[Rfam]
RNA sequence: AGUUGUCGUUUGCUCUGCCGAAAUAUUGUCCGGUCGGAGCUUUCAGCAGUUAAAUCA
Dot-bracket structure: .......(...(((((((((..........)))).)))))...).............
Numbered sequence: 001a002g003u004u005g006u007c008g009u010u011u012g013c014u015c016u017g018c019c020g021a022a023a024u025a026u027u028g029u030c031c032g033g034u035c036g037g038a039g040c041u042u043u044c045a046g047c048a049g050u051u052a053a054a055u056c057a
Stems, first nucleotide, its partner, number of pairs: 008044001012040005017034004
Rfam assigns this 57-nucleotide RNA sequence from Streptococcus danieliae to the family "Lacto-rpoB RNA".
A search with the family's covariance model found it, with a score of 55 bits.
Rfam classes the family as a cis-regulatory element.
Lineage of the source: Bacteria > Bacillati > Bacillota > Bacilli > Streptococcus.